msiK RNA: a 57-nucleotide RNA from Nanchangia anserum. The match comes from Rfam's covariance-model search (57 bits). The base pairs follow the family's consensus structure, which is taken from published work.
RNA sequence: UGCACAGACACUCCACUCGGAUCGUCGGGCACGUACCUGCCCGUGGAGGAGAUAAAU
Numbered sequence: 001u002g003c004a005c006a007g008a009c010a011c012u013c014c015a016c017u018c019g020g021a022u023c024g025u026c027g028g029g030c031a032c033g034u035a036c037c038u039g040c041c042c043g044u045g046g047a048g049g050a051g052a053u054a055a056a057u
Base pairs, nucleotide, nucleotide: 009049011048012047013046014045015044026043027042028041029040030039031038